The record is a 99-nucleotide RNA sequence from Sphingobium phenoxybenzoativorans, which matches "Glycine riboswitch aptamer" in Rfam. The source organism's lineage runs through Bacteria, Pseudomonadati, Alphaproteobacteria, Sphingomonadales and Sphingobium.
[Rfam]
RNA sequence: GGUCAUGACGCGGGAGAGCGUAGCGGGGUUUCGGCCUUGCUGCCGCCGAAGGAGCAACCGCCCCGGAAUCUCUCAGGCCCGAAGGACCGCGUCAUGGGC
Numbered sequence: 001g002g003u004c005a006u007g008a009c010g011c012g013g014g015a016g017a018g019c020g021u022a023g024c025g026g027g028g029u030u031u032c033g034g035c036c037u038u039g040c041u042g043c044c045g046c047c048g049a050a051g052g053a054g055c056a057a058c059c060g061c062c063c064c065g066g067a068a069u070c071u072c073u074c075a076g077g078c079c080c081g082a083a084g085g086a087c088c089g090c091g092u093c094a095u096g097g098g099c
Stems, first nucleotide, its partner, number of pairs: 006094008020043009045078003048074002052072003058066002